[Rfam]
RNA: SAH (S-adenosyl-L-homocysteine) riboswitch aptamer
RNA sequence: CGUUUCGAGGAGCGUUGCGACGGCUGUGACGGCCGCCAGGCUCGAAACGCUUCAAUCGACGGCUCGGCCUUGUGCGCGCGGCGCGGCGAGUCGUUGCCAGGAACGGCGCUCACGUCUU
Numbered sequence: 001c002g003u004u005u006c007g008a009g010g011a012g013c014g015u016u017g018c019g020a021c022g023g024c025u026g027u028g029a030c031g032g033c034c035g036c037c038a039g040g041c042u043c044g045a046a047a048c049g050c051u052u053c054a055a056u057c058g059a060c061g062g063c064u065c066g067g068c069c070u071u072g073u074g075c076g077c078g079c080g081g082c083g084c085g086g087c088g089a090g091u092c093g094u095u096g097c098c099a100g101g102a103a104c105g106g107c108g109c110u111c112a113c114g115u116c117u118u
Stems, first nucleotide, its partner, number of pairs: 002048007021035006
Dot-bracket structure: .(((((((............((((((...))))))......)))))))......................................................................